Rfam assigns this 294-nucleotide RNA from Fusarium oxysporum to the family "Fungal signal recognition particle RNA".

[Rfam]
RNA sequence: GACUGUAAUGGUCUAACGGUGAAGGCGCUCAAGCCCGCUCAACCGCCCAUCCCAAUACUGUAGUACUUCGGUACCUCAGCCCUCCGCCGCGCCCCGUCCGAACGCUGCGGUGGCCGCCCACUCGUGCAGGUAACUCACGAUGCUGGAACUUUGCGGCCCUAAGCACUGGAGAUGACCCUUGAGGGAGGUUUCACUCUGCAGAGAUCUCUCCCCCGUCGCGUGGCGGGUGGGAACACGUUAGUGCGGGGGGAUUUGGGAUGGCAAGUGGAUGAGAUGGAGCAGCCAACUGUCUUU
Numbered sequence: 001g002a003c004u005g006u007a008a009u010g011g012u013c014u015a016a017c018g019g020u021g022a023a024g025g026c027g028c029u030c031a032a033g034c035c036c037g038c039u040c041a042a043c044c045g046c047c048c049a050u051c052c053c054a055a056u057a058c059u060g061u062a063g064u065a066c067u068u069c070g071g072u073a074c075c076u077c078a079g080c081c082c083u084c085c086g087c088c089g090c091g092c093c094c095c096g097u098c099c100g101a102a103c104g105c106u107g108c109g110g111u112g113g114c115c116g117c118c119c120a121c122u123c124g125u126g127c128a129g130g131u132a133a134c135u136c137a138c139g140a141u142g143c144u145g146g147a148a149c150u151u152u153g154c155g156g157c158c159c160u161a162a163g164c165a166c167u168g169g170a171g172a173u174g175a176c177c178c179u180u181g182a183g184g185g186a187g188g189u190u191u192c193a194c195u196c197u198g199c200a201g202a203g204a205u206c207u208c209u210c211c212c213c214c215g216u217c218g219c220g221u222g223g224c225g226g227g228u229g230g231g232a233a234c235a236c237g238u239u240a241g242u243g244c245g246g247g248g249g250g251a252u253u254u255g256g257g258a259u260g261g262c263a264a265g266u267g268g269a270u271g272a273g274a275u276g277g278a279g280c281a282g283c284c285a286a287c288u289g290u291c292u293u294u
Stems, first nucleotide, its partner, number of pairs: 001013003018291004027280004032275001036271002039268003044265001047261009060077001063074004081247003085243003089238003093231008102221004107216004114146003118142001120141001122140005128135002159163001168211005178203003185196003
Pairs were carried over by alignment from the consensus structure, which is taken from published work.